[Rfam]
RNA sequence: CGUGCUCUGUCGCUCAAUCCCCAGGCGUCGCCGCAGUCGAGCGGUGCUCGGGGAGCCGGGGAACCACUUCUCAAUGGGGUGAAUCGGCCCACCGGUCCGCCGGUGGACCGUAGGAGACCUUCCUGCUCCGAACCCGUCAGCUAACCCGGUCGGCGAAGGAAGGAAAGGAG
Number, nucleotide and partner (000 for none) at each position: 001c000002g000003u000004g000005c000006u000007c000008u000009g000010u000011c155012g154013c153014u152015c000016a000017a000018u054019c053020c052021c051022c050023a000024g000025g000026c000027g000028u000029c000030g000031c000032c000033g000034c000035a000036g000037u000038c000039g000040a000041g000042c000043g000044g000045u000046g000047c000048u000049c000050g022051g021052g020053g019054a018055g150056c149057c148058g147059g146060g145061g000062a000063a000064c000065c076066a075067c000068u000069u000070c000071u000072c000073a000074a000075u066076g065077g135078g134079g133080u000081g000082a000083a000084u000085c110086g109087g108088c000089c000090c000091a000092c000093c000094g000095g000096u000097c000098c000099g000100c000101c000102g000103g000104u000105g000106g000107a000108c087109c086110g085111u000112a000113g129114g128115a127116g126117a000118c000119c000120u000121u000122c000123c000124u000125g000126c116127u115128c114129c113130g000131a000132a000133c079134c078135c077136g000137u000138c000139a000140g000141c000142u000143a000144a000145c060146c059147c058148g057149g056150u055151c000152g014153g013154c012155g011156a000157a000158g000159g000160a000161a000162g000163g000164a000165a000166a000167g000168g000169a000170g000
c-di-AMP riboswitch aptamer (ydaO/yuaA leader): a 170-nucleotide RNA from Streptomyces lonarensis.
The organism belongs to Streptomyces, within Bacteria.